[Rfam]
RNA sequence: GGGUGUGAGGGUGUCUGCCUGCAAACCCGCUGAUCACCAGGGUUGAUUCAGCUGAUCUGGCUGGCCAGGCAAGUGUCCCCUUCCUCACUGCUCCAUGUGCAGCCCUCCCAAAGCUGUGCUCGAGCUCAAAGAGGAUGACCUUCUUUGAUGGAGGGGUACCGUUCCACGGUCAAGGGUAUAUGGUAGCUACGCUCCCUGCUAGAACCUCCAAACAAACUCAAAAACCAUUUGUAGGAGAACGUGGGUUAGUCAAGCUUCCAAGACUGCAGACAUAUCCGAGUGAAGCACUGCGUGGGGCAGUCUGCCAUUGUUA
Numbered sequence: 001g002g003g004u005g006u007g008a009g010g011g012u013g014u015c016u017g018c019c020u021g022c023a024a025a026c027c028c029g030c031u032g033a034u035c036a037c038c039a040g041g042g043u044u045g046a047u048u049c050a051g052c053u054g055a056u057c058u059g060g061c062u063g064g065c066c067a068g069g070c071a072a073g074u075g076u077c078c079c080c081u082u083c084c085u086c087a088c089u090g091c092u093c094c095a096u097g098u099g100c101a102g103c104c105c106u107c108c109c110a111a112a113g114c115u116g117u118g119c120u121c122g123a124g125c126u127c128a129a130a131g132a133g134g135a136u137g138a139c140c141u142u143c144u145u146u147g148a149u150g151g152a153g154g155g156g157u158a159c160c161g162u163u164c165c166a167c168g169g170u171c172a173a174g175g176g177u178a179u180a181u182g183g184u185a186g187c188u189a190c191g192c193u194c195c196c197u198g199c200u201a202g203a204a205c206c207u208c209c210a211a212a213c214a215a216a217c218u219c220a221a222a223a224a225c226c227a228u229u230u231g232u233a234g235g236a237g238a239a240c241g242u243g244g245g246u247u248a249g250u251c252a253a254g255c256u257u258c259c260a261a262g263a264c265u266g267c268a269g270a271c272a273u274a275u276c277c278g279a280g281u282g283a284a285g286c287a288c289u290g291c292g293u294g295g296g297g298c299a300g301u302c303u304g305c306c307a308u309u310g311u312u313a
Base pairs, nucleotide, nucleotide: 001094002093003092005088006087007086008085009084010083011082013079017077018073020071021070022069026063027060028059029058032057033056034055035054037051102157103156104154105153106152107151109122111120113119114118126148127147128146133144134143135142186255187254188253192249193248195245196244197243198242199241206237207236208235209234212232213231214230215229216228279312280311282308285305286304287301288300289299290298291297

This 313-nucleotide RNA from Eurystomus gularis belongs to the Rfam family "7SK RNA". It is annotated as a non-coding RNA gene. About the family: 7SK was discovered as an abundant small nuclear RNA in the mid-70s but a possible function has only recently been suggested. Two independent studies have found that 7SK RNA binds the CDK9/cyclin T complex (known as elongation factor P-TEFb). P-TEFb activates transcription by phosphorylating the C-terminal domain of RNA polymerase II. This process is negatively regulated by the 7SK RNP. The secondary structure of 7SK RNA shown here was proposed by Wasserman and Steitz on the basis of chemical modification and enzymatic cleavage experiments. NCBI's taxonomy places the organism under Eukaryota, Teleostomi, Dinosauria, Aves, Eurystomus. A search with the family's covariance model found it, with a score of 206 bits.